azaaromatic riboswitch aptamer (yjdF RNA): a 123-nucleotide RNA sequence from Holdemania filiformis.
RNA sequence: AAACGCAAAGAUAAAAACGCAACGUAAGCGAUCCCGCUUACAGAGCCGGUAGGUAGCCCGGCCCCAUCGCAAGAUGGAAGUAACCUUCCCUCCUUCGGGUCGUCCGUUCUUUGUUCAUAACUU
Numbered sequence: 001a002a003a004c005g006c007a008a009a010g011a012u013a014a015a016a017a018c019g020c021a022a023c024g025u026a027a028g029c030g031a032u033c034c035c036g037c038u039u040a041c042a043g044a045g046c047c048g049g050u051a052g053g054u055a056g057c058c059c060g061g062c063c064c065c066a067u068c069g070c071a072a073g074a075u076g077g078a079a080g081u082a083a084c085c086u087u088c089c090c091u092c093c094u095u096c097g098g099g100u101c102g103u104c105c106g107u108u109c110u111u112u113g114u115u116c117a118u119a120a121c122u123u
Stems, first nucleotide, its partner, number of pairs: 005114007045062005064077005088099003
About this RNA
A search with the family's covariance model found it, with a score of 63 bits.